[Rfam]
RNA sequence: GUGUUUUUCAUGGUAUUAGAUUUAAGGUUAAUUACAAAGGGUGAGUCGUGAGACCCGCCCUUUGUAAUUUUUAU
Numbered sequence: 001g002u003g004u005u006u007u008u009c010a011u012g013g014u015a016u017u018a019g020a021u022u023u024a025a026g027g028u029u030a031a032u033u034a035c036a037a038a039g040g041g042u043g044a045g046u047c048g049u050g051a052g053a054c055c056c057g058c059c060c061u062u063u064g065u066a067a068u069u070u071u072u073a074u
Stems, first nucleotide, its partner, number of pairs: 040059004045054001

The family of this 74-nucleotide RNA sequence from bacterium J10(2018) is "Bacteroidetes FopS (family of paralogous sRNAs)". The RNA-binding protein RbpB and BTncRNA_FopS sRNA are involved in the post-transcription regulation of polysaccharide utilisation loci (PUL). FopS sRNAs function as post-transcriptional repressors by binding to the vicinity of the start codon of the first mRNA of target PUL polycistrons, typically corresponding to the cognate SusC homolog, impeding translation of the respective glycan transporter. For this family Rfam cites "The global RNA-binding protein RbpB is a regulator of polysaccharide utilization in Bacteroides thetaiotaomicron" (Ruttiger et al., Nat Commun, 2025). Pairs were carried over by alignment from the consensus structure, which is taken from published work. It scores 57 bits against the family's covariance model. Rfam classes the family as a small RNA.